[Rfam]
RNA: Bacillus-plasmid RNA
RNA sequence: UUUGUCAACGGUACCGGAAUGCAGCGUAGCGGAAUGAGGAUAAGGAGUUGACAGACUCAUCUGU
Numbered sequence: 001u002u003u004g005u006c007a008a009c010g011g012u013a014c015c016g017g018a019a020u021g022c023a024g025c026g027u028a029g030c031g032g033a034a035u036g037a038g039g040a041u042a043a044g045g046a047g048u049u050g051a052c053a054g055a056c057u058c059a060u061c062u063g064u
Stems, first nucleotide, its partner, number of pairs: 001055009